[Rfam]
RNA sequence: CGCAGCUUUGAAUGAUGUUACUUCUUUGGAAUUGAAGGAGACAUCAGUUAAAUCUGUGUU
Numbered sequence: 001c002g003c004a005g006c007u008u009u010g011a012a013u014g015a016u017g018u019u020a021c022u023u024c025u026u027u028g029g030a031a032u033u034g035a036a037g038g039a040g041a042c043a044u045c046a047g048u049u050a051a052a053u054c055u056g057u058g059u060u
Stems, first nucleotide, its partner, number of pairs: 002057004007052004013046006021040007

The record is a 60-nucleotide RNA sequence from Clupea harengus, which matches "mir-723 microRNA precursor family" in Rfam.
It scores 77 bits against the family's covariance model.
Pairs were carried over by alignment from the consensus structure, which was predicted with RNAalifold.